Rfam assigns this 65-nucleotide RNA sequence from Pelistega indica to the family "Betaproteobacteria toxic small RNA". About the family: Overexpression in amino aid rich medium attenuates growth, suggesting role in repressing amino acid intake and metabolism. A search with the family's covariance model found it, with a score of 68 bits. Rfam 15.1 lists 951 matches to the family in 508 species.
RNA sequence: UGUCUCCUCCACCCUCCUCCUUUGGUGGAUUUAGCCCAAAGUUGCAAAACUUUGGGCUUUUUUUU
Numbered sequence: 001u002g003u004c005u006c007c008u009c010c011a012c013c014c015u016c017c018u019c020c021u022u023u024g025g026u027g028g029a030u031u032u033a034g035c036c037c038a039a040a041g042u043u044g045c046a047a048a049a050c051u052u053u054g055g056g057c058u059u060u061u062u063u064u065u
Stems, first nucleotide, its partner, number of pairs: 008029006033058008